RNA sequence: CGGUGGGCUAGGCCGGGGGGUUCGGCGUCCCCUGUAACCCGAAACCGUCGAUAUGCGGGGGCCGAAGCCGAGGGAAGGUCCGCCAAACGGGAGUAACCGUUCGGCAAAGCCUUGCAGAAUCCCCGUCCCGAGGGGUCGGCGGUCACGGUUGGAGCAUCUGGAGGGAUGCUCCGCCGUGUUUACCGGGGGAACCGGCCCAGGCCCGGAAGGGAGCAGGCUUACCCCGGACGACCGGCGCUCUCGGGGGUGCGGGGAGGAGAGGCUUUGCCGAAUGGGCUCCCGCAAGGCGGAUCGACCCGAGGCGUGCCCACCA
Numbered sequence: 001c002g003g004u005g006g007g008c009u010a011g012g013c014c015g016g017g018g019g020g021u022u023c024g025g026c027g028u029c030c031c032c033u034g035u036a037a038c039c040c041g042a043a044a045c046c047g048u049c050g051a052u053a054u055g056c057g058g059g060g061g062c063c064g065a066a067g068c069c070g071a072g073g074g075a076a077g078g079u080c081c082g083c084c085a086a087a088c089g090g091g092a093g094u095a096a097c098c099g100u101u102c103g104g105c106a107a108a109g110c111c112u113u114g115c116a117g118a119a120u121c122c123c124c125g126u127c128c129c130g131a132g133g134g135g136u137c138g139g140c141g142g143u144c145a146c147g148g149u150u151g152g153a154g155c156a157u158c159u160g161g162a163g164g165g166a167u168g169c170u171c172c173g174c175c176g177u178g179u180u181u182a183c184c185g186g187g188g189g190a191a192c193c194g195g196c197c198c199a200g201g202c203c204c205g206g207a208a209g210g211g212a213g214c215a216g217g218c219u220u221a222c223c224c225c226g227g228a229c230g231a232c233c234g235g236c237g238c239u240c241u242c243g244g245g246g247g248u249g250c251g252g253g254g255a256g257g258a259g260a261g262g263c264u265u266u267g268c269c270g271a272a273u274g275g276g277c278u279c280c281c282g283c284a285a286g287g288c289g290g291a292u293c294g295a296c297c298c299g300a301g302g303c304g305u306g307c308c309c310a311c312c313a
Stems, first nucleotide, its partner, number of pairs: 002312007011063004015033007038059004043054001067303003072298003077293005083286001088282006097276002100272014115257001120255007127245008135236005140230002142180001144178005150173010183227006194219004202211003